RNA: Small nucleolar RNA Z122
RNA sequence: UGGGGGAAAUGAUGCCAACAACGCAAGUGACUGAAGCAUCAGCUCUGCUGAAUAUUAAUUUGCACGUCAGUCUGGUCCCAAA
Numbered sequence: 001u002g003g004g005g006g007a008a009a010u011g012a013u014g015c016c017a018a019c020a021a022c023g024c025a026a027g028u029g030a031c032u033g034a035a036g037c038a039u040c041a042g043c044u045c046u047g048c049u050g051a052a053u054a055u056u057a058a059u060u061u062g063c064a065c066g067u068c069a070g071u072c073u074g075g076u077c078c079c080a081a082a
Stems, first nucleotide, its partner, number of pairs: 001082001004079004